[Rfam]
RNA sequence: GAACGUCGCGCGGGAGAGAUCGCGGGCCUUGCGGCUCGCGGCGCCGAAGGAGCAACCGCCCCGGAAACUCUCAGGCACCCGGACCGCGCGCCGGAU
Numbered sequence: 001g002a003a004c005g006u007c008g009c010g011c012g013g014g015a016g017a018g019a020u021c022g023c024g025g026g027c028c029u030u031g032c033g034g035c036u037c038g039c040g041g042c043g044c045c046g047a048a049g050g051a052g053c054a055a056c057c058g059c060c061c062c063g064g065a066a067a068c069u070c071u072c073a074g075g076c077a078c079c080c081g082g083a084c085c086g087c088g089c090g091c092c093g094g095a096u
Stems, first nucleotide, its partner, number of pairs: 007090007020041007043076003046072002050070003056064002
Description:
The record is a 96-nucleotide RNA sequence from Pelagerythrobacter marensis, which matches "Glycine riboswitch aptamer" in Rfam. A search with the family's covariance model found it, with a score of 61 bits. Taxonomically the source falls in Pelagerythrobacter (Bacteria, Pseudomonadati, Pseudomonadota, Alphaproteobacteria).